Rfam assigns this 98-nucleotide RNA from Menidia menidia to the family "Vault RNA". From the family's description: This family of RNAs are found as part of the enigmatic vault ribonucleoprotein complex. The complex consists of a major vault protein (MVP), two minor vault proteins (VPARP and TEP1), and several small untranslated RNA molecules. It has been suggested that the vault complex is involved in drug resistance.
RNA sequence: GCACCGGCUUAGCUCAGUGGUUACUUCCCACGACUAAAGUUUCUCUCUGACGGUCCAUGGACCAUUGAGUUCAACCACGGGCGCUGUCCGGUGCUUUU
Numbered sequence: 001g002c003a004c005c006g007g008c009u010u011a012g013c014u015c016a017g018u019g020g021u022u023a024c025u026u027c028c029c030a031c032g033a034c035u036a037a038a039g040u041u042u043c044u045c046u047c048u049g050a051c052g053g054u055c056c057a058u059g060g061a062c063c064a065u066u067g068a069g070u071u072c073a074a075c076c077a078c079g080g081g082c083g084c085u086g087u088c089c090g091g092u093g094c095u096u097u098u
Stems, first nucleotide, its partner, number of pairs: 002093006012082004017078006
Rfam classes the family as a non-coding RNA gene. Lineage of the source: Eukaryota > Bilateria > Ctenosquamata > Acanthomorphata > Menidia.